[Rfam]
SAM riboswitch aptamer (S box leader): a 117-nucleotide sequence from Tenacibaculum adriaticum. The organism belongs to Tenacibaculum, within Bacteria. A search with the family's covariance model found it, with a score of 80 bits. Rfam links the family to the GO term regulation of gene expression.

RNA sequence: AUGUUAUCAAGAAAGGUGGAGGGAUUAGACCCUUUGAAGCCUUAGCAACCCUUUGUUCUAUACAAAGAAGGUGCUAAAUUCUACCAAAACUUUAAAAGUUUUAUGGAUAGAUAACUC
Numbered sequence: 001a002u003g004u005u006a007u008c009a010a011g012a013a014a015g016g017u018g019g020a021g022g023g024a025u026u027a028g029a030c031c032c033u034u035u036g037a038a039g040c041c042u043u044a045g046c047a048a049c050c051c052u053u054u055g056u057u058c059u060a061u062a063c064a065a066a067g068a069a070g071g072u073g074c075u076a077a078a079u080u081c082u083a084c085c086a087a088a089a090c091u092u093u094a095a096a097a098g099u100u101u102u103a104u105g106g107a108u109a110g111a112u113a114a115c116u117c
Stems, first nucleotide, its partner, number of pairs: 003115006013043005021032003026083004044075004049071002051067004079109001084106003088102002